[Rfam]
The record is a 203-nucleotide RNA sequence from Dendroctonus ponderosae, which matches "Gammaproteobacterial sRNA STnc100" in Rfam. The base pairs follow the family's consensus structure, which was predicted with CMfinder. The source organism's lineage runs through Eukaryota, Panarthropoda, Pancrustacea, Dicondylia and Dendroctonus.

RNA sequence: CCAUUUUGAGAUUUAGUGAUAUUUUUAAACACGUUGUAGUGAAUCCCCCUAUGCGGUGGGGCAAAUCAACUAUUUUCAUGUGACACUCCAAUAUGCGAACCACGGUUGGUUGUCCAAAGGUUCACCGGGAGGCACCCGGCACUACAACAGGCCCUUGCAGAAAUGCAGGGGCUUUUCCAUUUUAGGGGAUUAUGCUAUUUUGC
Numbered sequence: 001c002c003a004u005u006u007u008g009a010g011a012u013u014u015a016g017u018g019a020u021a022u023u024u025u026u027a028a029a030c031a032c033g034u035u036g037u038a039g040u041g042a043a044u045c046c047c048c049c050u051a052u053g054c055g056g057u058g059g060g061g062c063a064a065a066u067c068a069a070c071u072a073u074u075u076u077c078a079u080g081u082g083a084c085a086c087u088c089c090a091a092u093a094u095g096c097g098a099a100c101c102a103c104g105g106u107u108g109g110u111u112g113u114c115c116a117a118a119g120g121u122u123c124a125c126c127g128g129g130a131g132g133c134a135c136c137c138g139g140c141a142c143u144a145c146a147a148c149a150g151g152c153c154c155u156u157g158c159a160g161a162a163a164u165g166c167a168g169g170g171g172c173u174u175u176u177c178c179a180u181u182u183u184a185g186g187g188g189a190u191u192a193u194g195c196u197a198u199u200u201u202g203c
Stems, first nucleotide, its partner, number of pairs: 014157003033148002036145006046061004089095002097123004105115001125139005165203004174189005